[Rfam]
The record is an 84-nucleotide RNA from Bacillus sp. B1-b2, which matches "c-di-GMP-I riboswitch aptamer" in Rfam.

RNA sequence: AUUAUAUAUGGGCAAAUUUUACGAAAGUAAAAGACGCAAAGCCACGGGCCUAAAGCAAACUGCAAUGGCAGCCGGGUUGCCAAG
Numbered sequence: 001a002u003u004a005u006a007u008a009u010g011g012g013c014a015a016a017u018u019u020u021a022c023g024a025a026a027g028u029a030a031a032a033g034a035c036g037c038a039a040a041g042c043c044a045c046g047g048g049c050c051u052a053a054a055g056c057a058a059a060c061u062g063c064a065a066u067g068g069c070a071g072c073c074g075g076g077u078u079g080c081c082a083a084g
Stems, first nucleotide, its partner, number of pairs: 012037002017032006040078004045074003048069003055063003
Dot-bracket structure: ...........((...((((((....))))))...))..((((.((((((....(((...)))...)))..)))))))......